[Rfam]
RNA sequence: CACCUUACUUAUAAGCCGGGGGACAAGAUUUGUUCUAUGUUCACUAGUAAAACGUGAGGUAAAUAAUAGAGACAACCAGACACCGUGAAUGUUUUGAUGUUUUCGGUCAUAGUGUGUCCCACAUUU
Numbered sequence: 001c002a003c004c005u006u007a008c009u010u011a012u013a014a015g016c017c018g019g020g021g022g023a024c025a026a027g028a029u030u031u032g033u034u035c036u037a038u039g040u041u042c043a044c045u046a047g048u049a050a051a052a053c054g055u056g057a058g059g060u061a062a063a064u065a066a067u068a069g070a071g072a073c074a075a076c077c078a079g080a081c082a083c084c085g086u087g088a089a090u091g092u093u094u095u096g097a098u099g100u101u102u103u104c105g106g107u108c109a110u111a112g113u114g115u116g117u118c119c120c121a122c123a124u125u126u
Stems, first nucleotide, its partner, number of pairs: 002060007015048002019044001021042004026036003069120001071118004077112001082107004087102006
RNA: Caenorhabditis snoRNA ceN101